[Rfam]
RNA sequence: GCCGCGCCUAUCCCGACGGGGAGAAAACCGGGCACCUUCACCCGGCUGGCGCGGCACCCCCUUGAAGG
Dot-bracket structure: ((((((((..((((....)))).....(((((..[[[[[[)))))..)))))))).......]]]]]]

Notes: Shown here is a 68-nucleotide sequence, a member of the family "int-alpA RNA". The sequence is in the family's curated seed alignment. Pairs were carried over by alignment from the consensus structure, which is taken from published work. Acidobacteria (1 example), Planctomycetes (1 example), Proteobacteria. Rfam 15.1 lists 577 matches to the family in 491 species.